The record is a 59-nucleotide RNA sequence from Nocardioides terrae, which matches "msiK RNA" in Rfam. A search with the family's covariance model found it, with a score of 58 bits. Taxonomically the source falls in Nocardioides (Bacteria, Actinomycetota, Actinomycetes, Nocardioidaceae).
[Rfam]
RNA sequence: CUGUGGCAUCACUUCACUACGGAUCGUCCGGCACGUACCUGCCGGUGAAGGAGCAGUUU
Number, nucleotide and partner (000 for none) at each position: 001c000002u000003g000004u000005g000006g000007c000008a000009u000010c051011a000012c050013u049014u048015c047016a046017c000018u000019a000020c000021g000022g000023a000024u000025c000026g000027u000028c045029c044030g043031g042032c041033a040034c000035g000036u000037a000038c000039c000040u033041g032042c031043c030044g029045g028046u016047g015048a014049a013050g012051g010052a000053g000054c000055a000056g000057u000058u000059u000